[Rfam]
RNA sequence: UUGUUUUUUUAGGUUUUGAUUUUUGUAAAAGUUGGACAAGAAAUCAAAACCUGAAGAAAAGA
Numbered sequence: 001u002u003g004u005u006u007u008u009u010u011a012g013g014u015u016u017u018g019a020u021u022u023u024u025g026u027a028a029a030a031g032u033u034g035g036a037c038a039a040g041a042a043a044u045c046a047a048a049a050c051c052u053g054a055a056g057a058a059a060a061g062a
Stems, first nucleotide, its partner, number of pairs: 004059018023041002
Dot-bracket structure: ...((((((((((((((((((.((...............))))))))))))))))))))...